RNA sequence: AAAUUUCAAAGGCAAACCCGCCGAAAGACGGGGACGCAAAGCCACGGGUCUAAGGUCUUCUGACUAUGACAGCCGGUUGCCGCA
Numbered sequence: 001a002a003a004u005u006u007c008a009a010a011g012g013c014a015a016a017c018c019c020g021c022c023g024a025a026a027g028a029c030g031g032g033g034a035c036g037c038a039a040a041g042c043c044a045c046g047g048g049u050c051u052a053a054g055g056u057c058u059u060c061u062g063a064c065u066a067u068g069a070c071a072g073c074c075g076g077u078u079g080c081c082g083c084a
Stems, first nucleotide, its partner, number of pairs: 012037002017032004022027001040078004046074002048070003055064003
RNA: c-di-GMP-I riboswitch aptamer